[Rfam]
RNA: mir-34 microRNA precursor family
Organism: Galleria mellonella
RNA sequence: ACCGCGUUGGCAGUGUGGUUAGCUGGUUGUUUUAUACAUACAACAGCCACUAACGCCACUGCCCCUGCGUG
Numbered sequence: 001a002c003c004g005c006g007u008u009g010g011c012a013g014u015g016u017g018g019u020u021a022g023c024u025g026g027u028u029g030u031u032u033u034a035u036a037c038a039u040a041c042a043a044c045a046g047c048c049a050c051u052a053a054c055g056c057c058a059c060u061g062c063c064c065c066u067g068c069g070u071g
Stems, first nucleotide, its partner, number of pairs: 003069004009063002012060004018054005024049008